Rfam assigns this 208-nucleotide sequence from Cuscuta campestris to the family "Plant small nucleolar RNA U3". Small nucleolar RNAs (snoRNAs) are involved in the processing and modification of rRNA in the nucleolus. There are two main classes of snoRNAs: the box C/D class, and the box H/ACA class. U3 snoRNA is a member of the box C/D class. The source organism's lineage runs through Eukaryota, Tracheophyta, Solanales, Cuscuta subgen. Grammica and Cuscuta sect. Cleistogrammica. For this family Rfam cites "The uRNA database" (Zwieb, Nucleic Acids Res, 1997).
RNA sequence: ACGACCUUACUUGAACAGGAUCUGUUCUAUAGGUUGUACCUCCAAAUCCUUUACUCUAAAGAGAAAGGAAACCAAGCCUGGUUGAUGGAAAAUGGCUAAGAGGCUAGAGCGUGAGUAGCAAUUUGGGCCUUAGAAUUGGGCUCAUUAGCGGAGGAUCGUUCUCGGCCCACUUGUGAGCUGGGACGGCCUCUUAACUUUCUGACAGGUU
Numbered sequence: 001a002c003g004a005c006c007u008u009a010c011u012u013g014a015a016c017a018g019g020a021u022c023u024g025u026u027c028u029a030u031a032g033g034u035u036g037u038a039c040c041u042c043c044a045a046a047u048c049c050u051u052u053a054c055u056c057u058a059a060a061g062a063g064a065a066a067g068g069a070a071a072c073c074a075a076g077c078c079u080g081g082u083u084g085a086u087g088g089a090a091a092a093u094g095g096c097u098a099a100g101a102g103g104c105u106a107g108a109g110c111g112u113g114a115g116u117a118g119c120a121a122u123u124u125g126g127g128c129c130u131u132a133g134a135a136u137u138g139g140g141c142u143c144a145u146u147a148g149c150g151g152a153g154g155a156u157c158g159u160u161c162u163c164g165g166c167c168c169a170c171u172u173g174u175g176a177g178c179u180g181g182g183a184c185g186g187c188c189u190c191u192u193a194a195c196u197u198u199c200u201g202a203c204a205g206g207u208u
Stems, first nucleotide, its partner, number of pairs: 001037002003034001005033003013027006042067001047062002050059002076207005095195001097193009108160004118149002121146001123144001125143006162181005168175002